[Rfam]
Fluoride riboswitch aptamer (crcB RNA motif): a 69-nucleotide RNA sequence from Eoetvoesiella caeni. On this family, see Baker et al., Science 2012: "Widespread genetic switches and toxicity resistance proteins for fluoride". Lineage of the source: Bacteria > Pseudomonadota > Betaproteobacteria > Burkholderiales > Eoetvoesiella. The family has 289 seed sequences and 2,293 matches in Rfam 15.1.

RNA sequence: UAAUCAGACGGAGAUGGCAUUCUCCCCUAACUGUCAGCAGACAGGCUGACUAAUAAUGCCUACGCGUUC
Dot-bracket structure: .........[[[[..((((((]]]].......((((((......))))))....)))))).........
Numbered sequence: 001u002a003a004u005c006a007g008a009c010g011g012a013g014a015u016g017g018c019a020u021u022c023u024c025c026c027c028u029a030a031c032u033g034u035c036a037g038c039a040g041a042c043a044g045g046c047u048g049a050c051u052a053a054u055a056a057u058g059c060c061u062a063c064g065c066g067u068u069c
Stems, first nucleotide, its partner, number of pairs: 010025004016060006033050006